[Rfam]
RNA sequence: CACAUCACAGGAGAUGGCAUGCCUCCUCGAACCGCCGCGCCGUCCGGUGCGUGCUGAUGAUGCCUGCGCAAUU
Numbered sequence: 001c002a003c004a005u006c007a008c009a010g011g012a013g014a015u016g017g018c019a020u021g022c023c024u025c026c027u028c029g030a031a032c033c034g035c036c037g038c039g040c041c042g043u044c045c046g047g048u049g050c051g052u053g054c055u056g057a058u059g060a061u062g063c064c065u066g067c068g069c070a071a072u073u
Stems, first nucleotide, its partner, number of pairs: 010026004016064005034054002036051006
Shown here is a 73-nucleotide RNA sequence from Ideonella dechloratans, a member of the family "Fluoride riboswitch aptamer (crcB RNA motif)".
The match comes from Rfam's covariance-model search (44 bits).
Rfam links the family to the GO terms response to fluoride and positive regulation of gene expression.